[Rfam]
A member of the RNA family "Mitochondrion-encoded tmRNA" from Pythium oligandrum, 70 nucleotides long. Taxonomically the source falls in Pythium (Eukaryota, Stramenopiles, Pythiales, Pythiaceae). It is annotated as a non-coding RNA gene. Its family is annotated with RNA catabolic process in the Gene Ontology.
RNA sequence: UAAAUGGACCCAAAGGCGGUUUUUGGUAUUUCCAUAUAAAAUAUAAUAGGAAUAACUAAAUUGACAUUUU
Numbered sequence: 001u002a003a004a005u006g007g008a009c010c011c012a013a014a015g016g017c018g019g020u021u022u023u024u025g026g027u028a029u030u031u032c033c034a035u036a037u038a039a040a041a042u043a044u045a046a047u048a049g050g051a052a053u054a055a056c057u058a059a060a061u062u063g064a065c066a067u068u069u070u
Stems, first nucleotide, its partner, number of pairs: 002069005010026006027054006